Shown here is a 312-nucleotide sequence from Taxus chinensis, a member of the family "Plant signal recognition particle RNA". Lineage of the source: Eukaryota > Embryophyta > Spermatophyta > Conifers II > Taxus. The base pairs follow the family's consensus structure, which is taken from published work. Rfam classes the family as a non-coding RNA gene. For this family Rfam cites "SRPDB: Signal Recognition Particle Database" (Rosenblad et al., Nucleic Acids Res, 2003).

[Rfam]
RNA sequence: GCCGAGCUCAGUAACGCGAGCUUGUGACCCAUGUGGGGGCACACAAGGUUGACGGACAUGUGAGCCGUGGAACGGUAGGAGGGGAGAUGCGUGGCAUAUUACGCGGCACGCCCUGCUCCAAGUAGAGAGUUGUUGCAAGGCCCAUCCUGGAAAGAGGGAGGUCUGUCUUGCGGCCUAGAGAGGAGGGUACUGCGUGAGGCUGGUUUCACAGAGCAACGAUAACCACCCGCUCCCUACAGUGGAAGGAUAACGAGCUGCUUGUCCCUCUUCCCGCAAUCCUCCCGUCCCGCUCAUAAUCGAACAUCAACCUUU
Numbered sequence: 001g002c003c004g005a006g007c008u009c010a011g012u013a014a015c016g017c018g019a020g021c022u023u024g025u026g027a028c029c030c031a032u033g034u035g036g037g038g039g040c041a042c043a044c045a046a047g048g049u050u051g052a053c054g055g056a057c058a059u060g061u062g063a064g065c066c067g068u069g070g071a072a073c074g075g076u077a078g079g080a081g082g083g084g085a086g087a088u089g090c091g092u093g094g095c096a097u098a099u100u101a102c103g104c105g106g107c108a109c110g111c112c113c114u115g116c117u118c119c120a121a122g123u124a125g126a127g128a129g130u131u132g133u134u135g136c137a138a139g140g141c142c143c144a145u146c147c148u149g150g151a152a153a154g155a156g157g158g159a160g161g162u163c164u165g166u167c168u169u170g171c172g173g174c175c176u177a178g179a180g181a182g183g184a185g186g187g188u189a190c191u192g193c194g195u196g197a198g199g200c201u202g203g204u205u206u207c208a209c210a211g212a213g214c215a216a217c218g219a220u221a222a223c224c225a226c227c228c229g230c231u232c233c234c235u236a237c238a239g240u241g242g243a244a245g246g247a248u249a250a251c252g253a254g255c256u257g258c259u260u261g262u263c264c265c266u267c268u269u270c271c272c273g274c275a276a277u278c279c280u281c282c283c284g285u286c287c288c289g290c291u292c293a294u295a296a297u298c299g300a301a302c303a304u305c306a307a308c309c310u311u312u
Base pairs, nucleotide, nucleotide: 001040002039003038004023005022006021007020008019009018028037029036030035045311046310047309048308049307050306051305052304054302057299059296062292063291064290065289067287072285073284074283075282077280078279079278080277082272083271084270085269086268089265091264093263094262095261098259103258104257105256106255107254109252110251112246113245117243118242119241120240122237123236124235125234127232128231129230130229132174133173134172135171136170137169138168139167140166141165142161143160145158146157147156148155175180182227183226185224186223193218194217195216200211201210202209